Small nucleolar RNA psi28S-1192: a 138-nucleotide sequence from Drosophila ananassae. About the family: psi28S-1192 is a member of the H/ACA class of snoRNA. This family is responsible for guiding the modification of uridine 1192 to pseudouridine in Drosophila 28S rRNA. Rfam classes the family as an H/ACA-box small nucleolar RNA. Rfam links the family to the GO terms RNA processing and nucleolus.
[Rfam]
RNA sequence: UUUAGGUCCAAUCUAAUUCUGCAUCAUGGCUUAUUUAUGUAGUCUCGCUUUUGGACCAGAAAAAUCCCCAUUUUUUAUUAUCCUUGUGCUUGUAACACACUCCAGUUCAAUGCACACGAGAAACGUAAAAGAACACUA
Numbered sequence: 001u002u003u004a005g006g007u008c009c010a011a012u013c014u015a016a017u018u019c020u021g022c023a024u025c026a027u028g029g030c031u032u033a034u035u036u037a038u039g040u041a042g043u044c045u046c047g048c049u050u051u052u053g054g055a056c057c058a059g060a061a062a063a064a065u066c067c068c069c070a071u072u073u074u075u076u077a078u079u080a081u082c083c084u085u086g087u088g089c090u091u092g093u094a095a096c097a098c099a100c101u102c103c104a105g106u107u108c109a110a111u112g113c114a115c116a117c118g119a120g121a122a123a124c125g126u127a128a129a130a131g132a133a134c135a136c137u138a
Base pairs, nucleotide, nucleotide: 005057006056007055008054009053010052019042020041021040022039023038024037026035027033028032071132072131073130074129075128076127077126078125083120084119085118086117087116088115